[Rfam]
RNA sequence: CUGCAAUGAUGGCACUAUUUUCACCUCCUGUGUGUUGAUAUUUUGGGUCUGAGUGA
Numbered sequence: 001c002u003g004c005a006a007u008g009a010u011g012g013c014a015c016u017a018u019u020u021u022c023a024c025c026u027c028c029u030g031u032g033u034g035u036u037g038a039u040a041u042u043u044u045g046g047g048u049c050u051g052a053g054u055g056a
Base pairs, nucleotide, nucleotide: 002055003054004053008019009018010017011016
RNA: Small nucleolar RNA SNORD56